This 210-nucleotide RNA sequence from Arachis duranensis belongs to the Rfam family "Plant small nucleolar RNA U3".
It scores 159 bits against the family's covariance model.
Small nucleolar RNAs (snoRNAs) are involved in the processing and modification of rRNA in the nucleolus. There are two main classes of snoRNAs: the box C/D class, and the box H/ACA class. U3 snoRNA is a member of the box C/D class. Indeed, the box C/D element is a subset of the six short sequence elements found in all U3 snoRNAs, namely boxes A, A', B, C, C', and D. The U3 snoRNA secondary structure is characterised by a small 5' domain (with boxes A and A'), and a larger 3' domain (with boxes B, C, C', and D), the two domains being linked by a single-stranded hinge. Boxes B and C form the B/C motif, which appears to be exclusive to U3 snoRNAs, and boxes C' and D form the C'/D motif. The latter is functionally similar to the C/D motifs found in other snoRNAs. The 5' domain and the hinge region act as a pre-rRNA-binding domain. The 3' domain has conserved protein-binding sites. Both the box B/C and box C'/D motifs are sufficient for nuclear retention of U3 snoRNA. The box C'/D motif is also necessary for nucleolar localisation, stability and hyper-methylation of U3 snoRNA. Both box B/C and C'/D motifs are involved in specific protein interactions and are necessary for the rRNA processing functions of U3 snoRNA.
On this family, see Marz and Stadler, RNA Biol 2010: "Comparative analysis of eukaryotic U3 snoRNA".
The family's RNA type in Rfam is C/D-box small nucleolar RNA.
NCBI's taxonomy places the organism under Eukaryota, Embryophyta, Tracheophyta, fabids, Arachis.
Rfam links the family to the GO terms RNA processing and nucleolus.
[Rfam]
RNA sequence: ACGACCUUACUUGAACAGGAUUUGUUCUAUAGGCUCGUACAUCUGUAUCCUUGAGUUUUAAGAAGACAGGAACCAAAGUCUGGCGGAUGAACUAUGACCGUGAGGUCAGAGUGUGAUUAAUUGUUCCAAAGCGCAUGCCAUCUGAACGGUGGAGAAUCAUUCGCGCUACAACCUUGUGGUCGAGAUGGUCUCACGGUGUUCUGACAGACU
Numbered sequence: 001a002c003g004a005c006c007u008u009a010c011u012u013g014a015a016c017a018g019g020a021u022u023u024g025u026u027c028u029a030u031a032g033g034c035u036c037g038u039a040c041a042u043c044u045g046u047a048u049c050c051u052u053g054a055g056u057u058u059u060a061a062g063a064a065g066a067c068a069g070g071a072a073c074c075a076a077a078g079u080c081u082g083g084c085g086g087a088u089g090a091a092c093u094a095u096g097a098c099c100g101u102g103a104g105g106u107c108a109g110a111g112u113g114u115g116a117u118u119a120a121u122u123g124u125u126c127c128a129a130a131g132c133g134c135a136u137g138c139c140a141u142c143u144g145a146a147c148g149g150u151g152g153a154g155a156a157u158c159a160u161u162c163g164c165g166c167u168a169c170a171a172c173c174u175u176g177u178g179g180u181c182g183a184g185a186u187g188g189u190c191u192c193a194c195g196g197u198g199u200u201c202u203g204a205c206a207g208a209c210u
Stems, first nucleotide, its partner, number of pairs: 001038002003035001005033003013027006043069004048064001050062004078209005097197012110161004120150007129141001131139001132137001164182002167179001171175001
Dot-bracket structure: (((.(((.....((((((...))))))...))).).))....((((.(.((((.....)))).).))))........(((((..............((((((((((((.((((......(((((((..(.((....).).)..))))))).......))))..((.(...(...)...).))...)))))))))))).......))))).